[Rfam]
Rfam assigns this 160-nucleotide sequence from Nocardioides sp. GY 10127 to the family "c-di-AMP riboswitch aptamer (ydaO/yuaA leader)". It scores 64 bits against the family's covariance model. Lineage of the source: Bacteria > Bacillati > Actinomycetota > Nocardioidaceae > Nocardioides.
RNA sequence: UCUCGCGGCCGGCCGAGCAUCACCAGGGCAGGAGUGGGGGACCCACCUUCGCGGUCCCGAUGAACCGGGCUACCGCUCGGGGUGAAGCCGUGCAUGCACGGCCGGGCACCUUUCCGCCCGAACCCGACAGCUCACCUCACAGGCGUGGAAGGGACAGCCU
Dot-bracket structure: ...........(((.....(..........)..((((((....(..................................)(((.....((((......))))..((((........))))...))).........)))))).)))................